[Rfam]
RNA: Clostridiales-1 RNA
RNA sequence: UAUAAUAAGCUCACCCAUAAAAUCCUGCGUGACUGCUUGCAGGCAAAGCAGGAUUUCUAUGAGGGGAGCAAACAGACAUGAGCAAGAAGGACGAUAGUCCGGAUUGCGAAUGGAUAUAACGAUUUCGAGAGUGCUCAGCACGAAGAAAUCGUGUUAUUAUG
Dot-bracket structure: (((((((..(((...(((((((((((((.((.(((....))).).).))))))))).))))....)))...(.(..(((..((((...((((....))))...))))..)))..).)..(((((((....((((...))))...)))))))...)))))))
Numbered sequence: 001u002a003u004a005a006u007a008a009g010c011u012c013a014c015c016c017a018u019a020a021a022a023u024c025c026u027g028c029g030u031g032a033c034u035g036c037u038u039g040c041a042g043g044c045a046a047a048g049c050a051g052g053a054u055u056u057c058u059a060u061g062a063g064g065g066g067a068g069c070a071a072a073c074a075g076a077c078a079u080g081a082g083c084a085a086g087a088a089g090g091a092c093g094a095u096a097g098u099c100c101g102g103a104u105u106g107c108g109a110a111u112g113g114a115u116a117u118a119a120c121g122a123u124u125u126c127g128a129g130a131g132u133g134c135u136c137a138g139c140a141c142g143a144a145g146a147a148a149u150c151g152u153g154u155u156a157u158u159a160u161g
Stems, first nucleotide, its partner, number of pairs: 001161007010068003016061004020056009030046001031044001033042003072117001074115001077112003082107004089100004120151007131141004